[Rfam]
The family of this 159-nucleotide RNA from Glycine soja is "MIR4371 microRNA precursor family".
Rfam 15.1 lists 321 matches to the family in 4 species.
The match comes from Rfam's covariance-model search (125 bits).
Its family is annotated with miRNA-mediated post-transcriptional gene silencing and RISC complex in the Gene Ontology.
The base pairs follow the family's consensus structure, which was predicted with RNAalifold.
RNA sequence: CCGUUAAGUGAUGACGUGAUAACACAGAGUGUUAUGUCAUCAUCCACAAUUGUUGACACGUCAAUGUCAUGUCAUUGAAGAUGAUGACGUGACAAUGAGGUGUCCGUGAUAAAGCGUGAUGACGUGACACUCCGUCUGUUACGUCAUCACUUAAUGGAA
Numbered sequence: 001c002c003g004u005u006a007a008g009u010g011a012u013g014a015c016g017u018g019a020u021a022a023c024a025c026a027g028a029g030u031g032u033u034a035u036g037u038c039a040u041c042a043u044c045c046a047c048a049a050u051u052g053u054u055g056a057c058a059c060g061u062c063a064a065u066g067u068c069a070u071g072u073c074a075u076u077g078a079a080g081a082u083g084a085u086g087a088c089g090u091g092a093c094a095a096u097g098a099g100g101u102g103u104c105c106g107u108g109a110u111a112a113a114g115c116g117u118g119a120u121g122a123c124g125u126g127a128c129a130c131u132c133c134g135u136c137u138g139u140u141a142c143g144u145c146a147u148c149a150c151u152u153a154a155u156g157g158a159a
Base pairs, nucleotide, nucleotide: 001157002156003155004154005153006152007151008150009149010148011147012146013145014144015143016142017141018140019139020138021137024135025134027132028131029130030129031128032127033126034125035124036123037122038121039120040119041118042117043116045114049110050109051108052107053106055104056103057102058101059100071088072087073086074085075084